[Rfam]
RNA sequence: AAGGUGUUAGCGGGAGAGACUGCGCCACACAGCUGUGUGGCCAGCGCCGAAGGAGCAACUGCCCCGGAAACUCUCAGGCAAAAGGGACCGCUAACACGAU
Dot-bracket structure: .....((((((((......(((...................))).(((((..(((...(......)....))))).)))........)))))))).....

The family of this 100-nucleotide sequence from Marinobacter sp. BSs20148 is "Glycine riboswitch aptamer".
The pairing is the family consensus, mapped onto this sequence.
Gene Ontology term of the family: glycine biosynthetic process.
Rfam's curators write: This family represents the bacterial glycine riboswitch.
NCBI's taxonomy places the organism under Bacteria, Pseudomonadati, Pseudomonadota, Marinobacteraceae, Marinobacter.